[Rfam]
RNA: Group II catalytic intron D1-D4-3
Nucleotides: 188
Base pairs, nucleotide, nucleotide: 001016002015003014004013005012006011029188033184038178039177040176041175042174044173045171046170047169048168049167063166064165067162072158073157074156076154077153078152079151080150081149082148084111085110086109089105090104091103092102
Number, partner (000 for none) and nucleotide at each position: 001016u002015u003014c004013a005012c006011c007000g008000u009000g010000a011006g012005g013004u014003g015002g016001a017000a018000u019000c020000u021000g022000a023000a024000g025000a026000g027000u028000c029188u030000g031000a032000g033184a034000c035000g036000u037000g038178c039177u040176g041175u042174u043000a044173g045171u046170c047169c048168a049167a050000a051000a052000c053000a054000u055000u056000a057000u058000g059000u060000g061000a062000a063166c064165c065000a066000g067162a068000g069000g070000u071000g072158g073157c074156a075000u076154c077153u078152g079151u080150a081149a082148a083000u084111g085110g086109c087000g088000a089105u090104u091103c092102g093000c094000c095000a096000a097000a098000a099000a100000a101000u102092c103091g104090a105089a106000g107000a108000a109086g110085c111084u112000c113000a114000a115000u116000g117000c118000c119000g120000g121000c122000a123000u124000a125000a126000a127000a128000a129000c130000c131000a132000u133000g134000c135000a136000a137000u138000c139000u140000a141000g142000g143000c144000u145000g146000g147000a148082u149081u150080u151079g152078c153077a154076g155000a156074u157073g158072u159000g160000a161000u162067u163000a164000g165064g166063g167049u168048u169047g170046g171045a172000a173044u174042g175041a176040c177039a178038g179000c180000a181000a182000g183000a184033u185000g186000g187000a188029a